[Rfam]
RNA: Glycine riboswitch aptamer
Organism: Paramicrobacterium humi
RNA sequence: ACACGCGAUGCGGGAGAGCCCGGCUCGCCGGGCACCGAAGGAGCAAGCCUCCCCGCCAAUCUCUCAGGUUCUGUACCGCAUCGAUCUG
Number, nucleotide and partner (000 for none) at each position: 001a000002c000003a000004c000005g000006c083007g082008a081009u080010g079011c078012g077013g076014g000015a000016g000017a000018g000019c032020c031021c030022g029023g000024c000025u000026c000027g000028c000029c022030g021031g020032g019033c000034a069035c068036c067037g065038a064039a000040g000041g063042a062043g061044c000045a000046a000047g056048c055049c000050u000051c000052c000053c000054c000055g048056c047057c000058a000059a000060u000061c043062u042063c041064u038065c037066a000067g036068g035069u034070u000071c000072u000073g000074u000075a000076c013077c012078g011079c010080a009081u008082c007083g006084a000085u000086c000087u000088g000